[Rfam]
RNA sequence: GGUAGCACAAGAUAAAUUAAAGCACUUUUAUCAAAACAAAAACUCGUCUAUCUUUGAUGAUAAUGAAGUAAGCGAUAUGUAUAAGAUUAUAAAGGAAGGUUUUUAAUGGUGGUUCCGAUUGGGCUCGAACCAACGACUUCCACCA
Numbered sequence: 001g002g003u004a005g006c007a008c009a010a011g012a013u014a015a016a017u018u019a020a021a022g023c024a025c026u027u028u029u030a031u032c033a034a035a036a037c038a039a040a041a042a043c044u045c046g047u048c049u050a051u052c053u054u055u056g057a058u059g060a061u062a063a064u065g066a067a068g069u070a071a072g073c074g075a076u077a078u079g080u081a082u083a084a085g086a087u088u089a090u091a092a093a094g095g096a097a098g099g100u101u102u103u104u105a106a107u108g109g110u111g112g113u114u115c116c117g118a119u120u121g122g123g124c125u126c127g128a129a130c131c132a133a134c135g136a137c138u139u140c141c142a143c144c145a
Stems, first nucleotide, its partner, number of pairs: 021044002026039002029036001064072001107142003111138002116135002119133004
Rfam assigns this 145-nucleotide RNA from Campylobacter avium to the family "Bacterial antisense RNA HPnc0260". The match comes from Rfam's covariance-model search (60 bits).